A member of the RNA family "RAGATH-18 RNA" from Granulicatella balaenopterae, 62 nucleotides long.
Taxonomically the source falls in Granulicatella (Bacteria, Bacillota, Lactobacillales, Carnobacteriaceae).
The match comes from Rfam's covariance-model search (60 bits).
[Rfam]
Nucleotides: 062
Stems, first nucleotide, its partner, number of pairs: 001060005009049005022044003030037002
Number, partner (000 for none) and nucleotide at each position: 001060c002059c003058u004057u005056u006000g007000g008000a009049g010048a011047a012046u013045c014000a015000u016000a017000u018000c019000a020000a021000a022044u023043c024042g025000g026000a027000g028000u029000a030037g031036c032000g033000c034000u035000a036031g037030c038000a039000a040000a041000a042024c043023g044022a045013g046012a047011u048010u049009c050000u051000a052000u053000g054000a055000a056005g057004a058003a059002g060001g061000a062000g
The family's RNA type in Rfam is small RNA.